[Rfam]
This 69-nucleotide RNA from Neurospora crassa belongs to the Rfam family "tRNA". By type it is a transfer RNA. Pairs were carried over by alignment from the consensus structure, which is taken from published work.
RNA sequence: GAUUACGAUGUAAAUGGUUUACCCUUUGACUGCAAAUCUUAAGGAUUAGGUUCGAUUCCUACGUAAUCC
Numbered sequence: 001g002a003u004u005a006c007g008a009u010g011u012a013a014a015u016g017g018u019u020u021a022c023c024c025u026u027u028g029a030c031u032g033c034a035a036a037u038c039u040u041a042a043g044g045a046u047u048a049g050g051u052u053c054g055a056u057u058c059c060u061a062c063g064u065a066a067u068c069c
Stems, first nucleotide, its partner, number of pairs: 001068007010023001013020001025041001028038002047061004